[Rfam]
RNA sequence: AAAUUACAUGAGGGGUGCUAAAAUUGGCUGAGAUUAUACCCUUUAGUCUUAAACCUGAUCUAGAUAAUGCUAGCGUAGGGAUUUCUUAUUCUAAUUUU
Numbered sequence: 001a002a003a004u005u006a007c008a009u010g011a012g013g014g015g016u017g018c019u020a021a022a023a024u025u026g027g028c029u030g031a032g033a034u035u036a037u038a039c040c041c042u043u044u045a046g047u048c049u050u051a052a053a054c055c056u057g058a059u060c061u062a063g064a065u066a067a068u069g070c071u072a073g074c075g076u077a078g079g080g081a082u083u084u085c086u087u088a089u090u091c092u093a094a095u096u097u098u
Stems, first nucleotide, its partner, number of pairs: 006086001008084001010082001011042004016036001017028004054079004060073004
RNA: TPP riboswitch aptamer (THI element)
Organism: Anaerococcus nagyae